[Rfam]
RNA sequence: CUGUAUUCUACAGUGCAUGUGUCUCCAGUGUUAUCAGGCGACUGGAGAUGCAGCCCUGUUGGAAUAAC
Numbered sequence: 001c002u003g004u005a006u007u008c009u010a011c012a013g014u015g016c017a018u019g020u021g022u023c024u025c026c027a028g029u030g031u032u033a034u035c036a037g038g039c040g041a042c043u044g045g046a047g048a049u050g051c052a053g054c055c056c057u058g059u060u061g062g063a064a065u066a067a068c
Base pairs, nucleotide, nucleotide: 006064007063008062009061010059011058012057013056015054016053018052019051020050021049022048023047024046025045026044027043028042029041
The record is a 68-nucleotide RNA from Anseranas semipalmata, which matches "mir-139 microRNA precursor family" in Rfam. Pairs were carried over by alignment from the consensus structure, which was predicted with RNAalifold. A reference for the family is Murchison et al. (2008), "Conservation of small RNA pathways in platypus", Genome Res. The organism belongs to Anseranas, within Eukaryota. Rfam 15.1 lists 598 matches to the family in 559 species. Its family is annotated with miRNA-mediated post-transcriptional gene silencing and RISC complex in the Gene Ontology.